A member of the RNA family "mir-9447 microRNA precursor family" from Nematostella vectensis, 68 nucleotides long. A search with the family's covariance model found it, with a score of 77 bits. Taxonomically the source falls in Nematostella (Eukaryota, Cnidaria, Hexacorallia, Edwardsiidae). Pairs were carried over by alignment from the consensus structure, which was predicted with RNAalifold.
[Rfam]
RNA sequence: AGGGCAGACUGAAGAAGGUGAAUCGUCACCAACUAGCUUGUCACGAUUCACCUUUUUCAGUCUGCCCA
Numbered sequence: 001a002g003g004g005c006a007g008a009c010u011g012a013a014g015a016a017g018g019u020g021a022a023u024c025g026u027c028a029c030c031a032a033c034u035a036g037c038u039u040g041u042c043a044c045g046a047u048u049c050a051c052c053u054u055u056u057u058c059a060g061u062c063u064g065c066c067c068a
Stems, first nucleotide, its partner, number of pairs: 002067012015054012028041002